Annotation:
Small nucleolar RNA sn3071: a 76-nucleotide sequence from Artemisia annua. By type it is a C/D-box small nucleolar RNA.

[Rfam]
RNA sequence: GAUCAAUGAUGAGUUUCUCUUGACGAUUUUUGUUUUAAGAACAAAUCUGUGAAUAUUCAAAGAGAUAACUGAGAUC
Numbered sequence: 001g002a003u004c005a006a007u008g009a010u011g012a013g014u015u016u017c018u019c020u021u022g023a024c025g026a027u028u029u030u031u032g033u034u035u036u037a038a039g040a041a042c043a044a045a046u047c048u049g050u051g052a053a054u055a056u057u058c059a060a061a062g063a064g065a066u067a068a069c070u071g072a073g074a075u076c
Stems, first nucleotide, its partner, number of pairs: 001076004